A. fumigatus snoRNA Afu_263: an 89-nucleotide RNA from Exophiala sideris.
RNA sequence: UACUAUGAUGAACCAAAGUAAAAAAGCAUAGUUCAACUGAGACUUCAAGUCACUGAACGAAAACUUACCAUCACCAAUCUUUUCUGAAC
Numbered sequence: 001u002a003c004u005a006u007g008a009u010g011a012a013c014c015a016a017a018g019u020a021a022a023a024a025a026g027c028a029u030a031g032u033u034c035a036a037c038u039g040a041g042a043c044u045u046c047a048a049g050u051c052a053c054u055g056a057a058c059g060a061a062a063a064c065u066u067a068c069c070a071u072c073a074c075c076a077a078u079c080u081u082u083u084c085u086g087a088a089c
Stems, first nucleotide, its partner, number of pairs: 003018002006015002031058005041051004
By type it is a C/D-box small nucleolar RNA. Its family is annotated with RNA processing and nucleolus in the Gene Ontology. For this family Rfam cites "Small ncRNA transcriptome analysis from Aspergillus fumigatus suggests a novel mechanism for regulation of protein synthesis" (Jochl et al., Nucleic Acids Res, 2008). Pairs were carried over by alignment from the consensus structure.